[Rfam]
RNA sequence: AAAAAUAGAAUAUUUAAGCCAAAGACAGUAGGCAAAAACAAGUCCUACCGAGGUUAUAAAAAUUAUGUGUAUAUAAAGCACUUUUUAUAAUCUCGUAUUAGGAUAUAAAAAGUGUUUUUAAAUUUAUUA
Number, nucleotide and partner (000 for none) at each position: 001a000002a000003a000004a000005a000006u000007a000008g000009a000010a000011u000012a000013u000014u000015u000016a000017a000018g000019c000020c000021a000022a000023a000024g000025a000026c000027a000028g048029u047030a046031g045032g044033c000034a000035a000036a000037a000038a000039c000040a000041a000042g000043u000044c032045c031046u030047a029048c028049c000050g000051a000052g000053g000054u000055u000056a000057u000058a000059a000060a000061a000062a000063u000064u000065a000066u000067g000068u000069g000070u000071a000072u000073a000074u000075a000076a000077a000078g000079c114080a113081c112082u111083u110084u109085u108086u107087a106088u105089a000090a000091u000092c000093u000094c000095g000096u000097a000098u000099u000100a000101g000102g000103a000104u000105a088106u087107a086108a085109a084110a083111a082112g081113u080114g079115u000116u000117u000118u000119u000120a000121a000122a000123u000124u000125u000126a000127u000128u000129a000
Shown here is a 129-nucleotide sequence from Clostridium sp. CAG:389, a member of the family "Ribosomal protein L10 leader".
From the family's description: This family is a putative r-protein leader autoregulatory structure found in B. subtilis and other low-GC Gram-positive bacteria. It is located in the 5' untranslated regions of mRNAs encoding ribosomal proteins L10 and L12 (rplJ-rplL). A Rho-independent transcription terminator structure that is probably involved in regulation is included at the 3' end.
Taxonomically the source falls in Clostridium (Bacteria, Bacillati, Bacillota, Clostridiaceae).
For this family Rfam cites "Diverse mechanisms for regulating ribosomal protein synthesis in Escherichia coli" (Zengel and Lindahl, Prog Nucleic Acid Res Mol Biol, 1994).